Bradyrhizobiaceae sRNA BjrC174: a 206-nucleotide RNA from Methyloceanibacter marginalis. It scores 71 bits against the family's covariance model. It is annotated as a small RNA. The literature on the family includes a 2012 paper in RNA Biol by Madhugiri et al., "Small RNAs of the Bradyrhizobium/Rhodopseudomonas lineage and their analysis".
Nucleotides: 206
Base pairs, nucleotide, nucleotide: 037050039048040047083173084172085171086170087169088168090159091158092157093156094155095154096153097152098151099150107143108142109141110140111139112138113137114136115135122131123130183202184201185200186199187198188197189196190195
Number, partner (000 for none) and nucleotide at each position: 001000g002000u003000a004000a005000c006000a007000a008000a009000a010000c011000g012000a013000a014000a015000u016000a017000u018000a019000a020000a021000u022000c023000a024000c025000a026000g027000u028000u029000c030000c031000g032000c033000c034000c035000c036000a037050g038000u039048u040047c041000a042000g043000u044000c045000a046000a047040g048039g049000g050037c051000a052000c053000g054000c055000c056000c057000a058000g059000a060000a061000a062000u063000c064000u065000c066000g067000u068000a069000u070000g071000a072000u073000u074000g075000c076000a077000g078000a079000u080000g081000u082000u083173g084172c085171c086170u087169c088168u089000c090159g091158g092157c093156c094155c095154g096153g097152u098151c099150c100000a101000u102000a103000u104000g105000a106000g107143a108142g109141g110140c111139u112138u113137c114136g115135g116000a117000u118000c119000u120000c121000a122131g123130c124000c125000c126000c127000c128000c129000a130123g131122c132000c133000c134000c135115c136114c137113g138112g139111g140110g141109u142108c143107u144000u145000c146000u147000c148000u149000c150099g151098g152097a153096c154095c155094g156093g157092g158091c159090c160000c161000a162000c163000u164000u165000c166000u167000u168088a169087g170086a171085g172084g173083c174000c175000a176000c177000u178000c179000a180000a181000a182000u183202g184201g185200g186199c187198c188197g189196g190195c191000g192000a193000a194000a195190g196189c197188c198187g199186g200185c201184c202183c203000u204000u205000u206000u